[Rfam]
RNA sequence: GGCGCGGUGAUGACUCCAACAUGCCAUCUGAGCGCGGGUGCUGAGAUCAGAGGCUGUUUCUGAGCUG
Numbered sequence: 001g002g003c004g005c006g007g008u009g010a011u012g013a014c015u016c017c018a019a020c021a022u023g024c025c026a027u028c029u030g031a032g033c034g035c036g037g038g039u040g041c042u043g044a045g046a047u048c049a050g051a052g053g054c055u056g057u058u059u060c061u062g063a064g065c066u067g
Stems, first nucleotide, its partner, number of pairs: 005067004
RNA: Small nucleolar RNA SNORD95